The family of this 91-nucleotide RNA from Carpinus fangiana is "Small nucleolar RNA snoR26". The organism belongs to Carpinus, within Eukaryota. It scores 95 bits against the family's covariance model. The family's RNA type in Rfam is C/D-box small nucleolar RNA.
RNA sequence: UGAGCAUCGGUGAUGAAUAGAAUCCAUUGUUAUCCUUGCACUAUGAUUGUUUGUGAAGAAACUCAUGGGGAAAGUUCUUUCUGAGAUGCUC
Dot-bracket structure: .(((((((............................................................................)))))))